Rfam assigns this 76-nucleotide sequence from Hucho hucho to the family "mir-130 microRNA precursor family". Gene Ontology terms of the family: miRNA-mediated post-transcriptional gene silencing and RISC complex. The organism belongs to Hucho, within Eukaryota. A search with the family's covariance model found it, with a score of 42 bits.
RNA sequence: AAUGGCUCCCUAUUCCCUUCAUAGUGCACUACUCCGGUCAAAAGUAGUGCACUAUAAAGGGAAUAGGGUGCCAUUU
Numbered sequence: 001a002a003u004g005g006c007u008c009c010c011u012a013u014u015c016c017c018u019u020c021a022u023a024g025u026g027c028a029c030u031a032c033u034c035c036g037g038u039c040a041a042a043a044g045u046a047g048u049g050c051a052c053u054a055u056a057a058a059g060g061g062a063a064u065a066g067g068g069u070g071c072c073a074u075u076u
Stems, first nucleotide, its partner, number of pairs: 001076002004072003008068003012064008022054009